[Rfam]
RNA sequence: UUCUUAUCCAGAGAGGUGGAGGGAACUGGCCCUAUGAAACCCAGCAACCAUCGGGAUUGUCCUGACAGGUGCUAAUUCCAGCAAUGAUUUAUUCAUUGCAAGAUAAGAA
Numbered sequence: 001u002u003c004u005u006a007u008c009c010a011g012a013g014a015g016g017u018g019g020a021g022g023g024a025a026c027u028g029g030c031c032c033u034a035u036g037a038a039a040c041c042c043a044g045c046a047a048c049c050a051u052c053g054g055g056a057u058u059g060u061c062c063u064g065a066c067a068g069g070u071g072c073u074a075a076u077u078c079c080a081g082c083a084a085u086g087a088u089u090u091a092u093u094c095a096u097u098g099c100a101a102g103a104u105a106a107g108a109a
Base pairs, nucleotide, nucleotide: 001109002108003107004106005105006104007103008102013042015041016040017039021032022031023030026081027080028079029078043073044072045071046070048069049068051065052064053063054062077101082098083097084096085095086094087093
A member of the RNA family "SAM riboswitch aptamer (S box leader)" from Piscibacillus halophilus, 109 nucleotides long. A search with the family's covariance model found it, with a score of 96 bits. The family's consensus secondary structure is taken from published work. The family is grouped with related families in Rfam's "SAM clan". Rfam's curators write: The SAM riboswitch is found upstream of a number of genes which code for proteins involved in methionine or cysteine biosynthesis in Gram-positive bacteria. The organism belongs to Piscibacillus, within Bacteria.